Shown here is a 90-nucleotide sequence from Brachypodium distachyon, a member of the family "small nucleolar RNA snoR126". The literature on the family includes a 2009 paper in Nucleic Acids Res by Chen and Wu, "Mining small RNA sequencing data: a new approach to identify small nucleolar RNAs in Arabidopsis". The source organism's lineage runs through Eukaryota, Embryophyta, Tracheophyta, Magnoliopsida and Brachypodium.
RNA sequence: UGGCUGUGAUGACAACAAAAUCACUUAUUCAUACCUUAAUUUCAAUUAAGGACAGAAACUGAUGACUUUAUUUGUGCGUGUCUGAGCCGA
Numbered sequence: 001u002g003g004c005u006g007u008g009a010u011g012a013c014a015a016c017a018a019a020a021u022c023a024c025u026u027a028u029u030c031a032u033a034c035c036u037u038a039a040u041u042u043c044a045a046u047u048a049a050g051g052a053c054a055g056a057a058a059c060u061g062a063u064g065a066c067u068u069u070a071u072u073u074g075u076g077c078g079u080g081u082c083u084g085a086g087c088c089g090a
Base pairs, nucleotide, nucleotide: 001089002088003087004086